RNA sequence: CUGUCUCUCGCUUCAACAGUGUUUGGGUGGGACAG
Numbered sequence: 001c002u003g004u005c006u007c008u009c010g011c012u013u014c015a016a017c018a019g020u021g022u023u024u025g026g027g028u029g030g031g032a033c034a035g
Base pairs, nucleotide, nucleotide: 001035002034003033004032006031007030008029010028012027013026014025015024016023017021

Iron response element I: a 35-nucleotide RNA sequence from Physeter macrocephalus.
A search with the family's covariance model found it, with a score of 38 bits.
It is annotated as a cis-regulatory element.
The literature on the family includes a 1987 paper in Science by Hentze et al., "Identification of the iron-responsive element for the translational regulation of human ferritin mRNA".